[Rfam]
Nucleotides: 191
Stems, first nucleotide, its partner, number of pairs: 002059005009051001011049001013048002015043010127185007135178001146167005
Number, partner (000 for none) and nucleotide at each position: 001000u002059u003058g004057u005056a006055u007000u008000u009051u010000u011049u012000a013048u014047g015043a016042a017041a018040u019039a020038a021037a022036g023035c024034a025000a026000u027000u028000u029000u030000c031000c032000a033000g034024u035023g036022c037021u038020u039019u040018g041017u042016u043015u044000c045000u046000u047014c048013a049011a050000c051009a052000a053000c054000a055006g056005u057004g058003c059002a060000g061000a062000a063000a064000u065000u066000a067000a068000a069000c070000g071000c072000u073000u074000g075000a076000u077000u078000u079000u080000u081000u082000g083000u084000u085000u086000u087000u088000g089000a090000a091000a092000a093000u094000u095000u096000c097000a098000g099000a100000a101000a102000a103000c104000c105000a106000a107000g108000c109000a110000g111000c112000g113000g114000c115000c116000a117000g118000a119000c120000a121000a122000c123000c124000g125000u126000a127185g128184g129183g130182a131181u132180g133179g134000u135178a136000u137000c138000c139000a140000c141000a142000g143000a144000u145000g146167a147166a148165g149164g150163g151000c152000u153000u154000u155000u156000c157000a158000a159000u160000c161000c162000c163150u164149u165148u166147u167146u168000g169000u170000c171000u172000a173000c174000u175000u176000a177000u178135u179133c180132c181131a182130u183129c184128u185127c186000a187000c188000a189000u190000u191000u
Rfam assigns this 191-nucleotide RNA sequence from Hibiscus trionum to the family "small nucleolar RNA snoR143". Gene Ontology terms of the family: nucleolus and RNA processing. By type it is an H/ACA-box small nucleolar RNA. It scores 64 bits against the family's covariance model.